About this RNA
Rfam assigns this 318-nucleotide sequence from Candidatus Nitrosocosmicus agrestis to the family "Archaeal signal recognition particle RNA". The family's RNA type in Rfam is non-coding RNA gene. Gene Ontology terms of the family: SRP-dependent cotranslational protein targeting to membrane, signal sequence recognition and signal recognition particle, plasma membrane targeting. The family's consensus secondary structure is taken from published work.

RNA sequence: AUGGGGUAGGUAGGAUCGGGGUGCUAGCCGUACCCCAUAUCGAAAAUCGGCUUUAUGUCGAGAUCAGUAACCGUUAGGUAAAUUCGUGAAUGGGAGAAUACCCGCUCAUUCGACUAGUAUGAAAUCAUGCCGUAUCGGAUGGCUAUGAGCAGCAACUUACACGAAGGUGUAAAAUUGACUGCGAAUUGUUGAAAUGGGUGAGGUCCGGGAGGGAGCAACCCUAAGGCAUCGCAGCCGUGCUGUUACGUCUACGUGGUGGAUUUGGAAGAAUUUGAAAUGGGGCCUUCUAUGCAUGUUGGUACUAAUGGGCUACCCCAU
Numbered sequence: 001a002u003g004g005g006g007u008a009g010g011u012a013g014g015a016u017c018g019g020g021g022u023g024c025u026a027g028c029c030g031u032a033c034c035c036c037a038u039a040u041c042g043a044a045a046a047u048c049g050g051c052u053u054u055a056u057g058u059c060g061a062g063a064u065c066a067g068u069a070a071c072c073g074u075u076a077g078g079u080a081a082a083u084u085c086g087u088g089a090a091u092g093g094g095a096g097a098a099u100a101c102c103c104g105c106u107c108a109u110u111c112g113a114c115u116a117g118u119a120u121g122a123a124a125u126c127a128u129g130c131c132g133u134a135u136c137g138g139a140u141g142g143c144u145a146u147g148a149g150c151a152g153c154a155a156c157u158u159a160c161a162c163g164a165a166g167g168u169g170u171a172a173a174a175u176u177g178a179c180u181g182c183g184a185a186u187u188g189u190u191g192a193a194a195u196g197g198g199u200g201a202g203g204u205c206c207g208g209g210a211g212g213g214a215g216c217a218a219c220c221c222u223a224a225g226g227c228a229u230c231g232c233a234g235c236c237g238u239g240c241u242g243u244u245a246c247g248u249c250u251a252c253g254u255g256g257u258g259g260a261u262u263u264g265g266a267a268g269a270a271u272u273u274g275a276a277a278u279g280g281g282g283c284c285u286u287c288u289a290u291g292c293a294u295g296u297u298g299g300u301a302c303u304a305a306u307g308g309g310c311u312a313c314c315c316c317a318u
Stems, first nucleotide, its partner, number of pairs: 001318009014065004018036007040061004045056001071308007082297001084295001086292003091289006101281004105274001108271004114265004124257006131247004136242003139238006146231001149182004153177003157172006187228004196221004204213003
Dot-bracket structure: (((((((((....(((((((((((.....)))))))...((((.(..........).)))))))).....(((((((....(.(.(((..((((((....(((((..((((..((((......((((((.((((.(((((((((.(..(((((((.((((((....))))))..))).))))....((((.....((((....(((....)))....))))...))))..).)))))).))).))))....))))))....))))..))))..)...))))..)))))))))..).)....))))))).)))))))))